[Rfam]
RNA sequence: GGUAGUAGCAAAUACUCAAAUGAGAACUUUGAGGACUGAAGUGGGGAAAGGUUCCGUGUGAACAGCAGUUGGACACGGGUUAGCCGACCCUAAGCACUAGGGUAGUUCUGACUCAACGUGCGCGCUUGCGCGCCGCAGUGCGAAAGGGGAGCCGGUCAAUAUUCCGGCGCCUGGAUGUGGAUUCUCCGCGGCAACGCAACUGAAGGCGGAGACGACGGCGGGGGCCCUGGGAAGAGUUCUCUUUUCUUCUUAACGGUCCGUCACCCUGAAAUCGGUUUGUCCGGAGCUAGGGUUCAACGACCGGUAGAGCCCCUCACCUUUGAGGGGUCUGGUGCGCCCCCGACGUCCCUUGAAAAUCCGCCGGAAGGAAUAGCUUUCACGCCAGGUCGUACUCAUAACCGCAGCAGGUCUCCAAGGUGAACAGCCUCUAGUUGA
Dot-bracket structure: ..............((((((.......))))))((((.....((((..((...((((((...((.....)).))))))......(((.((...((..(.(((....)))).........(((........)))......))....))...(((((........)))))..((((.((((((......(((....))).......((((((...((((.(((((((.(((((((((.........))))))...(((((....((((((...((((.....))))...)))))).....)))))......(((((((....)))))))..)))...))))))).)))).........))))))............).))))))))).)))..)).....((......)).)))).((((.....))))..))))..
Shown here is a 435-nucleotide part of an RNA from Venturia inaequalis, a member of the family "Eukaryotic large subunit ribosomal RNA". The source organism's lineage runs through Eukaryota, Pezizomycotina, leotiomyceta, Venturiales and Venturia. On this family, see Yusupov et al., Science 2001: "Crystal structure of the ribosome at 5.5 A resolution".